A member of the RNA family "UnaL2 LINE 3' element" from Coregonus sp. 'balchen', 54 nucleotides long. The base pairs follow the family's consensus structure, which is taken from published work. It is annotated as a cis-regulatory element. For this family Rfam cites "Solution structure of an RNA stem-loop derived from the 3' conserved region of eel LINE UnaL2" (Baba et al., RNA, 2004). Rfam describes the family as follows. The eel long interspersed element (LINE) UnaL2 and its partner short interspersed element (SINE) share a conserved 3' tail containing a stem-loop that is critical for their retrotransposition.

RNA sequence: UCCCGUCUUAUGUGUAAGUCGCUCUGGAUAAGAGCGUCUGCUAAAUGACGUAAA
Numbered sequence: 001u002c003c004c005g006u007c008u009u010a011u012g013u014g015u016a017a018g019u020c021g022c023u024c025u026g027g028a029u030a031a032g033a034g035c036g037u038c039u040g041c042u043a044a045a046u047g048a049c050g051u052a053a054a
Stems, first nucleotide, its partner, number of pairs: 013043001014041003020036006